[Rfam]
RNA sequence: UAGCAGCGGUUGAGAUGAGAUUACCCCAUAACCUGCAGAGAGCGUCAGCUCGACGCCGUACACGCGUAUGGGGUAAUCUCAACUCAACAGCCGCUC
Dot-bracket structure: .((..((.((((((.(((((((.((((.((...........(((...(.....)..))).......)).)))).))))))).)))))).))..)).
Shown here is a 96-nucleotide sequence from Aegilops tauschii, a member of the family "MIR9772 microRNA precursor family". It scores 72 bits against the family's covariance model. Rfam links the family to the GO terms RISC complex and miRNA-mediated post-transcriptional gene silencing. NCBI's taxonomy places the organism under Eukaryota, Viridiplantae, Liliopsida, Triticinae, Aegilops tauschii. The family's consensus secondary structure was predicted with RNAalifold.